[Rfam]
RNA sequence: AUGCGCAGGGAUAAAAACACGGCCCGGUAGGUAGUCCGGGCGCAGCUGAAAGGCUGUCAGUAACCUGCCCUCCCAGGGUUGUCCAUUCCUUGCGGGAAUUUA
Numbered sequence: 001a002u003g004c005g006c007a008g009g010g011a012u013a014a015a016a017a018c019a020c021g022g023c024c025c026g027g028u029a030g031g032u033a034g035u036c037c038g039g040g041c042g043c044a045g046c047u048g049a050a051a052g053g054c055u056g057u058c059a060g061u062a063a064c065c066u067g068c069c070c071u072c073c074c075a076g077g078g079u080u081g082u083c084c085a086u087u088c089c090u091u092g093c094g095g096g097a098a099u100u101u102a
Base pairs, nucleotide, nucleotide: 004094005093006092007091008090009089010088011087022041023040024039025038026037027036042057043056044055045054046053047052067079068078069077070076